[Rfam]
RNA sequence: GAGUCUAUCAUGCUUGCGAGUGAGCUAGUGGCAAACUAGGGCAGUGCGUAAUGAAAGUGAAACCCGAGAAGUGCGAGUCGCUGCAUCGGGCCCGGGCGUCCGGCGUUGUUCGCAACAUUGAGGCGCGACGAGGGGAGCAGGCAUGGUGGGACCCGAAAGGCGGUGAUCUAUGCUUGUGAAGGGCGAAGUCGGAGGAAACUCCGAUGGAGGUCCGUCGCGGUUCUGACGUGCAAAUCGAUCGUUGAUGUGAGCAUAGGGCGAAAGACUCAUCGAACCGCCUAGUAGCUGGUU
Numbered sequence: 001g002a003g004u005c006u007a008u009c010a011u012g013c014u015u016g017c018g019a020g021u022g023a024g025c026u027a028g029u030g031g032c033a034a035a036c037u038a039g040g041g042c043a044g045u046g047c048g049u050a051a052u053g054a055a056a057g058u059g060a061a062a063c064c065c066g067a068g069a070a071g072u073g074c075g076a077g078u079c080g081c082u083g084c085a086u087c088g089g090g091c092c093c094g095g096g097c098g099u100c101c102g103g104c105g106u107u108g109u110u111c112g113c114a115a116c117a118u119u120g121a122g123g124c125g126c127g128a129c130g131a132g133g134g135g136a137g138c139a140g141g142c143a144u145g146g147u148g149g150g151a152c153c154c155g156a157a158a159g160g161c162g163g164u165g166a167u168c169u170a171u172g173c174u175u176g177u178g179a180a181g182g183g184c185g186a187a188g189u190c191g192g193a194g195g196a197a198a199c200u201c202c203g204a205u206g207g208a209g210g211u212c213c214g215u216c217g218c219g220g221u222u223c224u225g226a227c228g229u230g231c232a233a234a235u236c237g238a239u240c241g242u243u244g245a246u247g248u249g250a251g252c253a254u255a256g257g258g259c260g261a262a263a264g265a266c267u268c269a270u271c272g273a274a275c276c277g278c279c280u281a282g283u284a285g286c287u288g289g290u291u
Stems, first nucleotide, its partner, number of pairs: 005149013020047003025039005051058002063090005070082003092133002095129001097127003104120001152289002155286001159279006168256011181213004188205007217242004222238002225236002257267002
Annotation
Shown here is a 291-nucleotide part of an RNA from Thecamonas trahens, a member of the family "Eukaryotic large subunit ribosomal RNA". The family's consensus secondary structure is taken from published work.